Source information
mir-24 microRNA precursor family: a 70-nucleotide sequence from Lepisosteus oculatus. Rfam links the family to the GO terms RISC complex and miRNA-mediated post-transcriptional gene silencing. NCBI's taxonomy places the organism under Eukaryota, Eumetazoa, Bilateria, Deuterostomia, Lepisosteus. It scores 88 bits against the family's covariance model. Pairs were carried over by alignment from the consensus structure, which was predicted with RNAalifold. About the family: This family represents the microRNA (miRNA) mir-24 family. miRNAs are transcribed as ~70nt precursors (modelled here) and subsequently processed by the Dicer enzyme to give a ~22nt product.
RNA sequence: GCCUCCUGUGCCUACUGAGCUGAUAACAGUUCUAAUUGUACACACUGGCUCAGUUCAGCAGGAACAGGAG
Numbered sequence: 001g002c003c004u005c006c007u008g009u010g011c012c013u014a015c016u017g018a019g020c021u022g023a024u025a026a027c028a029g030u031u032c033u034a035a036u037u038g039u040a041c042a043c044a045c046u047g048g049c050u051c052a053g054u055u056c057a058g059c060a061g062g063a064a065c066a067g068g069a070g
Stems, first nucleotide, its partner, number of pairs: 003070004008065002011062003015058009027047004
Dot-bracket structure: ..((((.((.(((.(((((((((...((((.............))))..))))))))).))).)).))))